[Rfam]
Nucleotides: 076
Stems, first nucleotide, its partner, number of pairs: 001067004
Number, partner (000 for none) and nucleotide at each position: 001067g002066a003065g004064g005000a006000a007000u008000g009000a010000g011000g012000a013000c014000a015000a016000c017000g018000u019000c020000u021000a022000a023000c024000a025000g026000u027000c028000u029000g030000a031000u032000g033000g034000u035000c036000g037000c038000u039000g040000a041000a042000g043000a044000c045000u046000g047000a048000u049000a050000a051000g052000a053000u054000c055000c056000a057000a058000c059000u060000c061000u062000g063000a064004c065003c066002u067001c068000a069000g070000a071000a072000g073000c074000a075000g076000c
Annotation:
Rfam assigns this 76-nucleotide sequence from Echinops telfairi to the family "Small nucleolar RNA SNORD19". On this family, see Huttenhofer et al., EMBO J 2001: "RNomics: an experimental approach that identifies 201 candidates for novel, small, non-messenger RNAs in mouse". NCBI's taxonomy places the organism under Eukaryota, Eumetazoa, Euteleostomi, Eutheria, Echinops. The family's RNA type in Rfam is C/D-box small nucleolar RNA. Its Rfam clan is "SNORD19 clan". It is one of the family's seed sequences.